Shown here is a 58-nucleotide sequence from Musa balbisiana, a member of the family "Plastid-psbN 5UTR RNA". On this family, see Richter et al., Plant Commun 2023: "Retrograde signaling in plants: A critical review focusing on the GUN pathway and beyond". A search with the family's covariance model found it, with a score of 50 bits. Rfam classes the family as a cis-regulatory element.
RNA sequence: UGCUACUCCCAUUCAUGGUGUAGUCCCCCAGCCGGACUACGUUCCAUAUUCCGAAUUC
Numbered sequence: 001u002g003c004u005a006c007u008c009c010c011a012u013u014c015a016u017g018g019u020g021u022a023g024u025c026c027c028c029c030a031g032c033c034g035g036a037c038u039a040c041g042u043u044c045c046a047u048a049u050u051c052c053g054a055a056u057u058c
Stems, first nucleotide, its partner, number of pairs: 017043009
Dot-bracket structure: ................(((((((((.........)))))))))...............